This 81-nucleotide RNA from Streptomyces griseorubiginosus belongs to the Rfam family "Streptomyces RNA 6106". From the family's description: Identified by deep sequencing of transcriptome at the end of exponential growth phase. Appears smaller on northern blot than sequencing transcript. This indicates processing step.
RNA sequence: ACGUCGUCUCGCAGCGGCGUUUUUCGGCCUCUGGGCCAUCACGGGGGUGGUGCCGUGUCGGCGCAGCACCACCCCCGUCUC
Dot-bracket structure: (((((((......))))))).(....(((....)).))..(((((((((((((.(((....))).)))))))))))))...